[Rfam]
RNA sequence: AAAUGUGAAUUGAAUAAGUCUCAUAUAUGUCCAGAAUAAGGCAGGACGUUUCUACAGGUUACCGUAAAUGACCGGCUAUGAGUAUGAGGUUAAUCUUU
Numbered sequence: 001a002a003a004u005g006u007g008a009a010u011u012g013a014a015u016a017a018g019u020c021u022c023a024u025a026u027a028u029g030u031c032c033a034g035a036a037u038a039a040g041g042c043a044g045g046a047c048g049u050u051u052c053u054a055c056a057g058g059u060u061a062c063c064g065u066a067a068a069u070g071a072c073c074g075g076c077u078a079u080g081a082g083u084a085u086g087a088g089g090u091u092a093a094u095c096u097u098u
Base pairs, nucleotide, nucleotide: 020082021081022080023079024078025077029047030046031045032044034042057073058072059071060070061069

Source information:
Shown here is a 98-nucleotide RNA from Sebaldella termitidis, a member of the family "Purine riboswitch aptamer". On this family, see Reining et al., Nature 2013: "Three-state mechanism couples ligand and temperature sensing in riboswitches". Taxonomically the source falls in Sebaldella termitidis (Bacteria, Fusobacteriota, Fusobacteriia, Fusobacteriales). Gene Ontology term of the family: purine nucleobase biosynthetic process. Pairs were carried over by alignment from the consensus structure, which is taken from published work.